[Rfam]
RNA sequence: GCGUCCGCAGAGGGAGAAUCCGGCUUCGCGCCGGUGCCGAAGGAGCAACCGCCCCGGUAAACUCUCAGGCCCCAGGACCUUUGCGGGCGA
Numbered sequence: 001g002c003g004u005c006c007g008c009a010g011a012g013g014g015a016g017a018a019u020c021c022g023g024c025u026u027c028g029c030g031c032c033g034g035u036g037c038c039g040a041a042g043g044a045g046c047a048a049c050c051g052c053c054c055c056g057g058u059a060a061a062c063u064c065u066c067a068g069g070c071c072c073c074a075g076g077a078c079c080u081u082u083g084c085g086g087g088c089g090a
Stems, first nucleotide, its partner, number of pairs: 006085008020034004036070003039066002043064003049057002
Dot-bracket structure: .....((((((((......((((.......)))).(((((..(((...((.....))....))))).))).......)))))))).....
Rfam assigns this 90-nucleotide sequence from Meinhardsimonia xiamenensis to the family "Glycine riboswitch aptamer".
This family represents the bacterial glycine riboswitch.
The organism belongs to Meinhardsimonia, within Bacteria.
A search with the family's covariance model found it, with a score of 66 bits.